[Rfam]
RNA sequence: ACCCCGUCCUUAGGGGAGUAGUCUCCAGUUUAAUUUUUGAACUGGGUUUACAUCAACAUACUUGAUCCUCCUGAUCAUGGUGUAAACGACCUAGCGGUUUGACAAGACCUAUGGCAUAGAUAACCAGACUUGUUGGGUGGGCUGGUUAUAUGUGUCAUAGUGUAAUUGUCCCACC
Numbered sequence: 001a002c003c004c005c006g007u008c009c010u011u012a013g014g015g016g017a018g019u020a021g022u023c024u025c026c027a028g029u030u031u032a033a034u035u036u037u038u039g040a041a042c043u044g045g046g047u048u049u050a051c052a053u054c055a056a057c058a059u060a061c062u063u064g065a066u067c068c069u070c071c072u073g074a075u076c077a078u079g080g081u082g083u084a085a086a087c088g089a090c091c092u093a094g095c096g097g098u099u100u101g102a103c104a105a106g107a108c109c110u111a112u113g114g115c116a117u118a119g120a121u122a123a124c125c126a127g128a129c130u131u132g133u134u135g136g137g138u139g140g141g142c143u144g145g146u147u148a149u150a151u152g153u154g155u156c157a158u159a160g161u162g163u164a165a166u167u168g169u170c171c172c173a174c175c
Stems, first nucleotide, its partner, number of pairs: 026044003046087010063077005094174001

Rfam assigns this 175-nucleotide RNA from Entomomonas asaccharolytica to the family "Manganese Mn2+ riboswitch aptamer (yybP-ykoY)". The base pairs follow the family's consensus structure. For this family Rfam cites "The ubiquitous yybP-ykoY riboswitch is a manganese-responsive regulatory element" (Dambach et al., Mol Cell, 2015). NCBI's taxonomy places the organism under Bacteria, Pseudomonadati, Gammaproteobacteria, Pseudomonadales, Entomomonas. A search with the family's covariance model found it, with a score of 69 bits.